The family of this 75-nucleotide RNA from Fulvimonas soli is "SAH (S-adenosyl-L-homocysteine) riboswitch aptamer". The organism belongs to Fulvimonas, within Bacteria.

[Rfam]
RNA sequence: CCCGCCGAGGGGCGCUGCGACCGUCCCGGACGGCCAGGCUCGGCGCGGCAUGCGCAACAACGGCGCUCACCCACU
Numbered sequence: 001c002c003c004g005c006c007g008a009g010g011g012g013c014g015c016u017g018c019g020a021c022c023g024u025c026c027c028g029g030a031c032g033g034c035c036a037g038g039c040u041c042g043g044c045g046c047g048g049c050a051u052g053c054g055c056a057a058c059a060a061c062g063g064c065g066c067u068c069a070c071c072c073a074c075u
Stems, first nucleotide, its partner, number of pairs: 003045006021033005
Pairs were carried over by alignment from the consensus structure, which is taken from published work.